[Rfam]
RNA sequence: AUAUUUCUUCAGGGCAGGGUGAAAUUCCCGACCGGCGGUAAAGUCCGCGAGCUGCAUAGGCAGUUGACUUGGUGAGAUUCCAAGACCGACAGUAAAGUCUGGAUGGGAGAAGAUAAGC
Numbered sequence: 001a002u003a004u005u006u007c008u009u010c011a012g013g014g015c016a017g018g019g020u021g022a023a024a025u026u027c028c029c030g031a032c033c034g035g036c037g038g039u040a041a042a043g044u045c046c047g048c049g050a051g052c053u054g055c056a057u058a059g060g061c062a063g064u065u066g067a068c069u070u071g072g073u074g075a076g077a078u079u080c081c082a083a084g085a086c087c088g089a090c091a092g093u094a095a096a097g098u099c100u101g102g103a104u105g106g107g108a109g110a111a112g113a114u115a116a117g118c
Stems, first nucleotide, its partner, number of pairs: 004115001006113005017029003031098002033088002035048004043086002051064003068084005090101003
The family of this 118-nucleotide RNA sequence from Acetoanaerobium sticklandii is "FMN riboswitch aptamer (RFN element)".
For this family Rfam cites "FMN riboswitch aptamer symmetry facilitates conformational switching through mutually exclusive coaxial stacking configurations" (Wilt et al., J Struct Biol X, 2020).
The match comes from Rfam's covariance-model search (122 bits).
NCBI's taxonomy places the organism under Bacteria, Bacillati, Bacillota, Peptostreptococcales, Acetoanaerobium sticklandii.